[Rfam]
RNA: L17 ribosomal protein downstream element
Organism: Aerococcus suis
RNA sequence: AGAGUGUUAUGAUGAUGGGAAACCUAGUCUAGCUCUGUUCACUUCCAAGCGUUUGCUUGGAAG
Numbered sequence: 001a002g003a004g005u006g007u008u009a010u011g012a013u014g015a016u017g018g019g020a021a022a023c024c025u026a027g028u029c030u031a032g033c034u035c036u037g038u039u040c041a042c043u044u045c046c047a048a049g050c051g052u053u054u055g056c057u058u059g060g061a062a063g
Stems, first nucleotide, its partner, number of pairs: 002035004011029003017024002042063009